This 119-nucleotide sequence from Streptomyces albus belongs to the Rfam family "Streptomyces-metK RNA". The match comes from Rfam's covariance-model search (96 bits). It is annotated as a small RNA. The base pairs follow the family's consensus structure, which is taken from published work. Lineage of the source: Bacteria > Bacillati > Actinomycetota > Kitasatosporales > Streptomyces.
RNA sequence: UCGAGAGUCCGUGAUUGGAUGCAGGCGGAGAUGGAUAAACUGGCCGCGGACCGUGCUUGGGCGCAGCCCCCGACCGGUCCGCCCCAUGCUCAGCCAGCAGCCGCUGCAACCCCAGGGAG
Numbered sequence: 001u002c003g004a005g006a007g008u009c010c011g012u013g014a015u016u017g018g019a020u021g022c023a024g025g026c027g028g029a030g031a032u033g034g035a036u037a038a039a040c041u042g043g044c045c046g047c048g049g050a051c052c053g054u055g056c057u058u059g060g061g062c063g064c065a066g067c068c069c070c071c072g073a074c075c076g077g078u079c080c081g082c083c084c085c086a087u088g089c090u091c092a093g094c095c096a097g098c099a100g101c102c103g104c105u106g107c108a109a110c111c112c113c114a115g116g117g118a119g
Stems, first nucleotide, its partner, number of pairs: 048080006058072004095106004